[Rfam]
RNA sequence: UAAUAAUCUUGUUAUGGCGAGGCUCCUGAAUAAACAUAAGUUAUCGCCCUGGUGGUAUCGAGAGAGACCAUCACAGGGAAAUACAGGCAUCCAUCGAAUCAAGGUGUUGCCAAGAUAACUUCUGACGGUGUAGACCGUACAGAUACGUUGUUCAGUGCUAAAACCGGGACGUAGGGAUUCUUC
Numbered sequence: 001u002a003a004u005a006a007u008c009u010u011g012u013u014a015u016g017g018c019g020a021g022g023c024u025c026c027u028g029a030a031u032a033a034a035c036a037u038a039a040g041u042u043a044u045c046g047c048c049c050u051g052g053u054g055g056u057a058u059c060g061a062g063a064g065a066g067a068c069c070a071u072c073a074c075a076g077g078g079a080a081a082u083a084c085a086g087g088c089a090u091c092c093a094u095c096g097a098a099u100c101a102a103g104g105u106g107u108u109g110c111c112a113a114g115a116u117a118a119c120u121u122c123u124g125a126c127g128g129u130g131u132a133g134a135c136c137g138u139a140c141a142g143a144u145a146c147g148u149u150g151u152u153c154a155g156u157g158c159u160a161a162a163a164c165c166g167g168g169a170c171g172u173a174g175g176g177a178u179u180c181u182u183c
Stems, first nucleotide, its partner, number of pairs: 005179006011170002013102001016165002021159003026155008040119005047078004056067001058065002086111004093105003121143003
Dot-bracket structure: ....(((((((([..((...(((..((((((((......(((((..((((.....(.((....)).).......)))).......((((...(((......])))..))))...))))).(((.................)))....)))))))).)))....))...))...))))))....
M-box riboswitch aptamer (ykoK leader): a 183-nucleotide RNA from Kluyvera cryocrescens. Gene Ontology terms of the family: response to magnesium ion and regulation of gene expression. Rfam describes the family as follows. M-box riboswitch, also know as ykoK leader is described as a metaloregulatory RNA that sense divalent metals and function as a genetic control element of genes related to divalent metal transport in bacteria. It was first reported upstream of the B.subtilis ykoK gene and genes with related functions in other bacteria. The source organism's lineage runs through Bacteria, Pseudomonadati, Gammaproteobacteria, Enterobacterales and Kluyvera.